[Rfam]
RNA sequence: CCUGGAAGUCGGAUGGCCGCUGGCAAAGAUUUAAUCAUUGCUGGAGGAAAGUCCGGGCUCCACGAAAACAAGGUGCCGGGUAAUACCCGGCGAGGGUAACCUUAGGGAAAGUGCCACAGAAAAUAUACCGCCGAUGGUUUUCAUCGGUAAGGGUGAAAUGGUGCGGUAAGAGCGCACCGCGCGCCUGGUAACAGGCGUGGCAGGGUAAACCCCACCUGGAGCAAGACCAAAUAGGAAUGACACUCUGACUUUUGUCAGAAAAUGAGUUUUCGCAUUGUUGUUCGGGUAGGUCGCGUGAAGGCACUGGUAACAGUGCUUCCAGAGGAAUGGUCAUCCCUGAUUCUAUCAGGACAGAACCCGGCUUAUAGACUUCCAGGUCUU
Numbered sequence: 001c002c003u004g005g006a007a008g009u010c011g012g013a014u015g016g017c018c019g020c021u022g023g024c025a026a027a028g029a030u031u032u033a034a035u036c037a038u039u040g041c042u043g044g045a046g047g048a049a050a051g052u053c054c055g056g057g058c059u060c061c062a063c064g065a066a067a068a069c070a071a072g073g074u075g076c077c078g079g080g081u082a083a084u085a086c087c088c089g090g091c092g093a094g095g096g097u098a099a100c101c102u103u104a105g106g107g108a109a110a111g112u113g114c115c116a117c118a119g120a121a122a123a124u125a126u127a128c129c130g131c132c133g134a135u136g137g138u139u140u141u142c143a144u145c146g147g148u149a150a151g152g153g154u155g156a157a158a159u160g161g162u163g164c165g166g167u168a169a170g171a172g173c174g175c176a177c178c179g180c181g182c183g184c185c186u187g188g189u190a191a192c193a194g195g196c197g198u199g200g201c202a203g204g205g206u207a208a209a210c211c212c213c214a215c216c217u218g219g220a221g222c223a224a225g226a227c228c229a230a231a232u233a234g235g236a237a238u239g240a241c242a243c244u245c246u247g248a249c250u251u252u253u254g255u256c257a258g259a260a261a262a263u264g265a266g267u268u269u270u271c272g273c274a275u276u277g278u279u280g281u282u283c284g285g286g287u288a289g290g291u292c293g294c295g296u297g298a299a300g301g302c303a304c305u306g307g308u309a310a311c312a313g314u315g316c317u318u319c320c321a322g323a324g325g326a327a328u329g330g331u332c333a334u335c336c337c338u339g340a341u342u343c344u345a346u347c348a349g350g351a352c353a354g355a356a357c358c359c360g361g362c363u364u365a366u367a368g369a370c371u372u373c374c375a376g377g378u379c380u381u
Stems, first nucleotide, its partner, number of pairs: 001377010011366001012335007020044007028036001049364003053361005058221004066270003071217005076090005091105001092103004106212002111210002113206003128152002130148008160178006179201001180199008225292004235283006261276004299318008